RNA sequence: GAUGCACCCAAACCCAAAGGCCAUAUCAGUGUGAUAUGAUUUUGUCUGGCGUGCAAACAGGAAGUGAACCUUGUCGCCUUUCUUUGAGCUGCCGUGCCUCUGAAAGUGAAUCCAAGGAGCUACAGAU
Numbered sequence: 001g002a003u004g005c006a007c008c009c010a011a012a013c014c015c016a017a018a019g020g021c022c023a024u025a026u027c028a029g030u031g032u033g034a035u036a037u038g039a040u041u042u043u044g045u046c047u048g049g050c051g052u053g054c055a056a057a058c059a060g061g062a063a064g065u066g067a068a069c070c071u072u073g074u075c076g077c078c079u080u081u082c083u084u085u086g087a088g089c090u091g092c093c094g095u096g097c098c099u100c101u102g103a104a105a106g107u108g109a110a111u112c113c114a115a116g117g118a119g120c121u122a123c124a125g126a127u
Base pairs, nucleotide, nucleotide: 003055004054005053006052007051009049019041020040022038023037024036025035026034027033028032066120069117070116071115072114078106079105080104081103082102086099088097089096